Overview:
This 119-nucleotide RNA sequence from Streptomyces malaysiensis belongs to the Rfam family "Streptomyces-metK RNA".
RNA sequence: GUGGGACGGGAAUGCUUGACCGGUGGACGUGCCGGAUAAACUGGCCCAGGAACCGCACCGGGCGCAGCUCCCGAGCGGUCCGACCAUGAUCAGCCAGCAGCCGCUGCAACCCCAGGGAG
Numbered sequence: 001g002u003g004g005g006a007c008g009g010g011a012a013u014g015c016u017u018g019a020c021c022g023g024u025g026g027a028c029g030u031g032c033c034g035g036a037u038a039a040a041c042u043g044g045c046c047c048a049g050g051a052a053c054c055g056c057a058c059c060g061g062g063c064g065c066a067g068c069u070c071c072c073g074a075g076c077g078g079u080c081c082g083a084c085c086a087u088g089a090u091c092a093g094c095c096a097g098c099a100g101c102c103g104c105u106g107c108a109a110c111c112c113c114a115g116g117g118a119g
Base pairs, nucleotide, nucleotide: 050081052079053078054077055076058075059073060072061071062070095106096105097104098103
The family's RNA type in Rfam is small RNA. It scores 104 bits against the family's covariance model.